[Rfam]
RNA sequence: CCUCCCAUGUUCAGAAACGAGCAUGGAGUGAGAUUUUAAGAAAUCUCCAACAUCCUUUGAAUUGCUGGGACCUCCUAAAGCUCAUUUAACCACAACAUAAGUUUGAAAUAGACUAAGUGUGAAGGUUGCGAAAGCAGAAAAAAUAAAUGAGAUGGCAUAAGGUUAAAUCCUACGUGCUCAUACAAUGGAAAAUCAGCAGCGAAGCUCCGAAUAGGAGAACGUUCAACGACUAUCCCUAUAAGGGAGUACACUACAAGCGAUGGGUAGUGGAAGCGGAGGACAUCCUCAAACUAGGAUGAUGAUAUAGUCUACACUCAUAUGAAAGUAUGAG
Numbered sequence: 001c002c003u004c005c006c007a008u009g010u011u012c013a014g015a016a017a018c019g020a021g022c023a024u025g026g027a028g029u030g031a032g033a034u035u036u037u038a039a040g041a042a043a044u045c046u047c048c049a050a051c052a053u054c055c056u057u058u059g060a061a062u063u064g065c066u067g068g069g070a071c072c073u074c075c076u077a078a079a080g081c082u083c084a085u086u087u088a089a090c091c092a093c094a095a096c097a098u099a100a101g102u103u104u105g106a107a108a109u110a111g112a113c114u115a116a117g118u119g120u121g122a123a124g125g126u127u128g129c130g131a132a133a134g135c136a137g138a139a140a141a142a143a144u145a146a147a148u149g150a151g152a153u154g155g156c157a158u159a160a161g162g163u164u165a166a167a168u169c170c171u172a173c174g175u176g177c178u179c180a181u182a183c184a185a186u187g188g189a190a191a192a193u194c195a196g197c198a199g200c201g202a203a204g205c206u207c208c209g210a211a212u213a214g215g216a217g218a219a220c221g222u223u224c225a226a227c228g229a230c231u232a233u234c235c236c237u238a239u240a241a242g243g244g245a246g247u248a249c250a251c252u253a254c255a256a257g258c259g260a261u262g263g264g265u266a267g268u269g270g271a272a273g274c275g276g277a278g279g280a281c282a283u284c285c286u287c288a289a290a291c292u293a294g295g296a297u298g299a300u301g302a303u304a305u306a307g308u309c310u311a312c313a314c315u316c317a318u319a320u321g322a323a324a325g326u327a328u329g330a331g
Stems, first nucleotide, its partner, number of pairs: 005026008053280004058275002063198006073189003199222002206216003226310001228309005283296004316329005
Shown here is a 331-nucleotide sequence from Turicibacter sp. HGF1, a member of the family "Group I catalytic intron". Group I catalytic introns are large self-splicing ribozymes. They catalyse their own excision from mRNA, tRNA and rRNA precursors in a wide range of organisms. It scores 89 bits against the family's covariance model.